Rfam assigns this 288-nucleotide sequence from Podospora anserina to the family "A. fumigatus sRNA Afu_309". A reference for the family is Jochl et al. (2008), "Small ncRNA transcriptome analysis from Aspergillus fumigatus suggests a novel mechanism for regulation of protein synthesis", Nucleic Acids Res.
[Rfam]
RNA sequence: CUUUUUCUCUCUUCAACGGUCCUGUGCCCAGUGUUCCUCUGCUGCCCUCGGGUGGUCAGAGUCGCAGCGCUGGCGCAGCUCGGUAUUACCAAGGAUGCCAUCUUCUCUCCAUGAUGUCAGCUCUACCGACAGGAACCAAGAUUGACCGAAGUCUGUGGCAGCUCUGUUCGCGCCGUUUCGGCGGCGCUUGAGCGGGGUGUAAACUGAUUUUACGAGAUGCUAUAUUCCAAGCCGUUCGCAGAGACCGUCGGUCUGUGAUGCUGGGGGAAACCAUAGCGACCUACAUUU
Numbered sequence: 001c002u003u004u005u006u007c008u009c010u011c012u013u014c015a016a017c018g019g020u021c022c023u024g025u026g027c028c029c030a031g032u033g034u035u036c037c038u039c040u041g042c043u044g045c046c047c048u049c050g051g052g053u054g055g056u057c058a059g060a061g062u063c064g065c066a067g068c069g070c071u072g073g074c075g076c077a078g079c080u081c082g083g084u085a086u087u088a089c090c091a092a093g094g095a096u097g098c099c100a101u102c103u104u105c106u107c108u109c110c111a112u113g114a115u116g117u118c119a120g121c122u123c124u125a126c127c128g129a130c131a132g133g134a135a136c137c138a139a140g141a142u143u144g145a146c147c148g149a150a151g152u153c154u155g156u157g158g159c160a161g162c163u164c165u166g167u168u169c170g171c172g173c174c175g176u177u178u179c180g181g182c183g184g185c186g187c188u189u190g191a192g193c194g195g196g197g198u199g200u201a202a203a204c205u206g207a208u209u210u211u212a213c214g215a216g217a218u219g220c221u222a223u224a225u226u227c228c229a230a231g232c233c234g235u236u237c238g239c240a241g242a243g244a245c246c247g248u249c250g251g252u253c254u255g256u257g258a259u260g261c262u263g264g265g266g267g268a269a270a271c272c273a274u275a276g277c278g279a280c281c282u283a284c285a286u287u288u
Stems, first nucleotide, its partner, number of pairs: 018137002020134006026076002028073004033068003036064001037061005042055005084128001094118002097115001099113001148211003155204001162196003166193005172187002216281001218279001219277005232266002235263001238261003243253004